The family of this 134-nucleotide RNA from Cavia porcellus is "Small nucleolar RNA SNORA46". ACA46 is a member of the H/ACA class of snoRNA that guide the sites of modification of uridines to pseudouridines. The organism belongs to Cavia, within Eukaryota. Pairs were carried over by alignment from the consensus structure, which was predicted with RNAfold. It is annotated as an H/ACA-box small nucleolar RNA.
RNA sequence: AGCACUAUAUUUAAACUAUGGAUGGGAAUUUUCCCCAUUCUUGGUUACGCUGUAGUGCAAAAGAAUUCCUGGCUCUAUCUUAAACAGCUGACUUGUCUCAUUCUGCUGUUGCUUUGUGGAGUUAAGGUACAGAA
Numbered sequence: 001a002g003c004a005c006u007a008u009a010u011u012u013a014a015a016c017u018a019u020g021g022a023u024g025g026g027a028a029u030u031u032u033c034c035c036c037a038u039u040c041u042u043g044g045u046u047a048c049g050c051u052g053u054a055g056u057g058c059a060a061a062a063g064a065a066u067u068c069c070u071g072g073c074u075c076u077a078u079c080u081u082a083a084a085c086a087g088c089u090g091a092c093u094u095g096u097c098u099c100a101u102u103c104u105g106c107u108g109u110u111g112c113u114u115u116g117u118g119g120a121g122u123u124a125a126g127g128u129a130c131a132g133a134a
Stems, first nucleotide, its partner, number of pairs: 002058008014046004020040007066129001068127003071123006078116001084110001085108004090103002